This 182-nucleotide RNA from Limosilactobacillus mucosae belongs to the Rfam family "Lysine riboswitch aptamer". The base pairs follow the family's consensus structure, which is taken from published work.
RNA sequence: UUAAAUCGAAGAGGCGCAGUCAACAUGAGUACCGUAUGUUAGUCGCAGACCAGACAAUGAUCGUACGGGAAAGGGGCGAUUGCCGAAGCUUUCAGACCGGGUCGCGGCUUGAUUGCUGGGGCGUGGCUGAACAAGUCACGGACUGUCGCGGAGAAAAACUUCGCGGAGCGCUAUCGACCAAU
Numbered sequence: 001u002u003a004a005a006u007c008g009a010a011g012a013g014g015c016g017c018a019g020u021c022a023a024c025a026u027g028a029g030u031a032c033c034g035u036a037u038g039u040u041a042g043u044c045g046c047a048g049a050c051c052a053g054a055c056a057a058u059g060a061u062c063g064u065a066c067g068g069g070a071a072a073g074g075g076g077c078g079a080u081u082g083c084c085g086a087a088g089c090u091u092u093c094a095g096a097c098c099g100g101g102u103c104g105c106g107g108c109u110u111g112a113u114u115g116c117u118g119g120g121g122c123g124u125g126g127c128u129g130a131a132c133a134a135g136u137c138a139c140g141g142a143c144u145g146u147c148g149c150g151g152a153g154a155a156a157a158a159c160u161u162c163g164c165g166g167a168g169c170g171c172u173a174u175c176g177a178c179c180a181a182u
Base pairs, nucleotide, nucleotide: 006177007176008175009174010172011171016083017082018081019080020079021078024075032068033067034066035065036064037063038062087117088116089115092112093111094110095109097107098106118144119143122140123139124138125137126136127135128134146166147165148164149163150162151161152160